A member of the RNA family "Alpha operon ribosome binding site" from Rodentibacter trehalosifermentans, 115 nucleotides long. A reference for the family is Schlax et al. (2001), "Translational repression of the Escherichia coli alpha operon mRNA: importance of an mRNA conformational switch and a ternary entrapment complex", J Biol Chem. Rfam links the family to the GO term ribosome binding.
RNA sequence: UCCUUGGUAUUCUGUUUGAGUAUCCUGAAAACGGGCUUUUCAUGAUCAGAAUACCAAUUAAUUUUAGAAAUAGGAGUGCAUAGUGGCCCGUAUUGCAGGCAUUAACAUUCCUGAU
Numbered sequence: 001u002c003c004u005u006g007g008u009a010u011u012c013u014g015u016u017u018g019a020g021u022a023u024c025c026u027g028a029a030a031a032c033g034g035g036c037u038u039u040u041c042a043u044g045a046u047c048a049g050a051a052u053a054c055c056a057a058u059u060a061a062u063u064u065u066a067g068a069a070a071u072a073g074g075a076g077u078g079c080a081u082a083g084u085g086g087c088c089c090g091u092a093u094u095g096c097a098g099g100c101a102u103u104a105a106c107a108u109u110c111c112u113g114a115u
Stems, first nucleotide, its partner, number of pairs: 004057010024099003032090004040114003